[Rfam]
The family of this 135-nucleotide RNA sequence from Conger conger is "Small nucleolar RNA SNORA84". The literature on the family includes a 2002 paper in Curr Biol by Marker et al., "Experimental RNomics: identification of 140 candidates for small non-messenger RNAs in the plant Arabidopsis thaliana". The base pairs follow the family's consensus structure, which was predicted with WAR.

RNA sequence: GCCCUGUGGUUCCUGGAACCUGCUAUUCUGUGCAGUUCUCCAGGUUUUUGAUAGGGCAUAUAUUAACUCUGUGAUUUUUGCGUGGAGCCUGUGGCUUUAUACAUCAGUCUCCAUAGCCCGGUCUCAGAAACAUUU
Numbered sequence: 001g002c003c004c005u006g007u008g009g010u011u012c013c014u015g016g017a018a019c020c021u022g023c024u025a026u027u028c029u030g031u032g033c034a035g036u037u038c039u040c041c042a043g044g045u046u047u048u049u050g051a052u053a054g055g056g057c058a059u060a061u062a063u064u065a066a067c068u069c070u071g072u073g074a075u076u077u078u079u080g081c082g083u084g085g086a087g088c089c090u091g092u093g094g095c096u097u098u099a100u101a102c103a104u105c106a107g108u109c110u111c112c113a114u115a116g117c118c119c120g121g122u123c124u125c126a127g128a129a130a131c132a133u134u135u
Stems, first nucleotide, its partner, number of pairs: 001057004008048001012044006020035004069127001071125001073123004080117002082114004087109001089107003